The record is a 570-nucleotide part of an RNA from Entamoeba nuttalli, which matches "Eukaryotic small subunit ribosomal RNA" in Rfam.
It is one of the family's seed sequences.
Its Rfam clan is "SSU clan".
The literature on the family includes a 2002 paper in BMC Bioinformatics by Cannone et al., "The comparative RNA web (CRW) site: an online database of comparative sequence and structure information for ribosomal, intron, and other RNAs".
The base pairs follow the family's consensus structure, which is taken from published work.
The source organism's lineage runs through Eukaryota, Archamoebae, Mastigamoebida, Endamoebidae and Entamoeba.
RNA sequence: GUUGCUGUGAUUAAAACGCUCGUAGUUGAAUUAAAAUGUGAUUUUAUACAUUUUGAAGACUUUGCAUAAGUAAAGUUUCUAGAAAUGUUAAAUUAAAAUCAAAGAAGGAAACAAUUCAAGUAAUUGAGUUGUUAUUACUUUGAAUAAAAUAAGGUGUUUAAAGCAAAACAUUAUGUUAAUGAAUAUUCAAGCAUGGGACAAUGCUGAGGGGAUGUCAAUAAGACAUUUCGAGAGAAGGAUUAAAAGGAACAAUUGGGGUGAUUCAGAAAAUAACGGGAGAGGUGAAAAUCCAUGAUCGCUAUAAGAUGCACGAGAGCGAAAGCAUUUCACUCAACUGUGUCCAUUAAUCAAGAACGAAAGUUAGGGGAUCGAAGACGAUCAGAUACCGUCGUAGUCCUAACUAUAAACGAUGUCAACCAAGGAUUGGAUGAAAUUCAGAUGUACAAAGAUGAAGAAGCAUUGUUUCUUAAUCUGAGUAUAUCAAUAUUACCUUGUUCAGAACUUAAAGAGAAAUCUUGAGUUUAUGGACUUCAGGGGGAGUAUGGUCACAAGGCUGAAACUUAAAGGAAU
Numbered sequence: 001g002u003u004g005c006u007g008u009g010a011u012u013a014a015a016a017c018g019c020u021c022g023u024a025g026u027u028g029a030a031u032u033a034a035a036a037u038g039u040g041a042u043u044u045u046a047u048a049c050a051u052u053u054u055g056a057a058g059a060c061u062u063u064g065c066a067u068a069a070g071u072a073a074a075g076u077u078u079c080u081a082g083a084a085a086u087g088u089u090a091a092a093u094u095a096a097a098a099u100c101a102a103a104g105a106a107g108g109a110a111a112c113a114a115u116u117c118a119a120g121u122a123a124u125u126g127a128g129u130u131g132u133u134a135u136u137a138c139u140u141u142g143a144a145u146a147a148a149a150u151a152a153g154g155u156g157u158u159u160a161a162a163g164c165a166a167a168a169c170a171u172u173a174u175g176u177u178a179a180u181g182a183a184u185a186u187u188c189a190a191g192c193a194u195g196g197g198a199c200a201a202u203g204c205u206g207a208g209g210g211g212a213u214g215u216c217a218a219u220a221a222g223a224c225a226u227u228u229c230g231a232g233a234g235a236a237g238g239a240u241u242a243a244a245a246g247g248a249a250c251a252a253u254u255g256g257g258g259u260g261a262u263u264c265a266g267a268a269a270a271u272a273a274c275g276g277g278a279g280a281g282g283u284g285a286a287a288a289u290c291c292a293u294g295a296u297c298g299c300u301a302u303a304a305g306a307u308g309c310a311c312g313a314g315a316g317c318g319a320a321a322g323c324a325u326u327u328c329a330c331u332c333a334a335c336u337g338u339g340u341c342c343a344u345u346a347a348u349c350a351a352g353a354a355c356g357a358a359a360g361u362u363a364g365g366g367g368a369u370c371g372a373a374g375a376c377g378a379u380c381a382g383a384u385a386c387c388g389u390c391g392u393a394g395u396c397c398u399a400a401c402u403a404u405a406a407a408c409g410a411u412g413u414c415a416a417c418c419a420a421g422g423a424u425u426g427g428a429u430g431a432a433a434u435u436c437a438g439a440u441g442u443a444c445a446a447a448g449a450u451g452a453a454g455a456a457g458c459a460u461u462g463u464u465u466c467u468u469a470a471u472c473u474g475a476g477u478a479u480a481u482c483a484a485u486a487u488u489a490c491c492u493u494g495u496u497c498a499g500a501a502c503u504u505a506a507a508g509a510g511a512a513a514u515c516u517u518g519a520g521u522u523u524a525u526g527g528a529c530u531u532c533a534g535g536g537g538g539a540g541u542a543u544g545g546u547c548a549c550a551a552g553g554c555u556g557a558a559a560c561u562u563a564a565a566g567g568a569a570u
Base pairs, nucleotide, nucleotide: 008533009532010531016530018355020353021352025348026347027346246342247341248340250337251336253334254333257331258330259329260328261327264308265307270302271301272300274298275297279290280289316323317322360401361400362399363398364397365396370394374390375389376388377387412529413528414527415522416521417520419504420503421502424499425498426497427496428495429494430493431492435489508515509514535562536561537560544555545554546553547552